[Rfam]
RNA sequence: AAGUAUCUCCGAAUCCUCACGGAGAAGAUAGGAGUAACGGCUGGUUGGCACAGCCAUCGACGUUCUUGUUUGACAAGGAAACUGGUGUGUUCGCACCUCAAGAACACGUAACGUCGUAAACCACAAUAUCCCAACGGCGGUCGGGAAUCAUCGCCCUUCAGGGCCGGGA
Dot-bracket structure: ..((..((((..(((...........))).))))..))(((((.......)))))..((((((.(.(((((............(((((....)))))....))))).)..))))))............((((.((....)).)))).((.(.((((....)))).).))
This 169-nucleotide RNA from Halobaculum gomorrense belongs to the Rfam family "Sense overlapping transcript RNA 0042 (sot)". Rfam classes the family as a small RNA. It is associated with IS1341-type transposase (tnpB) genes, at the 3'-end in H. salinarum NRC-1. The tetraloop structural motif may be functional. The family's consensus secondary structure was predicted with RNAfold. NCBI's taxonomy places the organism under Archaea, Methanobacteriota, Halobacteria, Haloferacaceae, Halobaculum. The family has 2 seed sequences and 196 matches in Rfam 15.1.